RNA: Lysine riboswitch aptamer
RNA sequence: UCAUGAGGUAGAGGAGCAAUGCGAAUGAGUAGUCCGUCUGAGUGCAGGAGCACGGUGAAGGCGGCCGAAAGGUCAAUUUGCCGAAGAAAAAUUCCGUCUCCGCCGGAUUUUUCUGGGGCAGUGCAGAACAUGCACUGUACUGUCACUGCUUUAAAGCAGUGGAGCACUAUCCGGAUG
Numbered sequence: 001u002c003a004u005g006a007g008g009u010a011g012a013g014g015a016g017c018a019a020u021g022c023g024a025a026u027g028a029g030u031a032g033u034c035c036g037u038c039u040g041a042g043u044g045c046a047g048g049a050g051c052a053c054g055g056u057g058a059a060g061g062c063g064g065c066c067g068a069a070a071g072g073u074c075a076a077u078u079u080g081c082c083g084a085a086g087a088a089a090a091a092u093u094c095c096g097u098c099u100c101c102g103c104c105g106g107a108u109u110u111u112u113c114u115g116g117g118g119c120a121g122u123g124c125a126g127a128a129c130a131u132g133c134a135c136u137g138u139a140c141u142g143u144c145a146c147u148g149c150u151u152u153a154a155a156g157c158a159g160u161g162g163a164g165c166a167c168u169a170u171c172c173g174g175a176u177g
Stems, first nucleotide, its partner, number of pairs: 007171005016081004023074002032066001034064006085114010096103001115141002118138008143162007